[Rfam]
RNA sequence: GUGAUACUCAAAUGUGGGGCACUAUUCUGGACUGAGUAGAAAGUGCUACGACAUUUGAGUUUCUC
Numbered sequence: 001g002u003g004a005u006a007c008u009c010a011a012a013u014g015u016g017g018g019g020c021a022c023u024a025u026u027c028u029g030g031a032c033u034g035a036g037u038a039g040a041a042a043g044u045g046c047u048a049c050g051a052c053a054u055u056u057g058a059g060u061u062u063c064u065c
Stems, first nucleotide, its partner, number of pairs: 004062001006060007014052002017049001018047006025041003
Record summary: A member of the RNA family "mir-290 microRNA precursor family" from Neotoma lepida, 65 nucleotides long. Rfam links the family to the GO terms RISC complex and miRNA-mediated post-transcriptional gene silencing. The literature on the family includes a 2003 paper in Dev Cell by Houbaviy et al., "Embryonic stem cell-specific MicroRNAs".